[Rfam]
RNA sequence: UUUUUAGCAUAUGUAUGUCCCAUGCAAUUUUGGGGACAUAUAUAUACUAAAA
Dot-bracket structure: .....((.((((.(((.(((((........).)))).))).)))).))....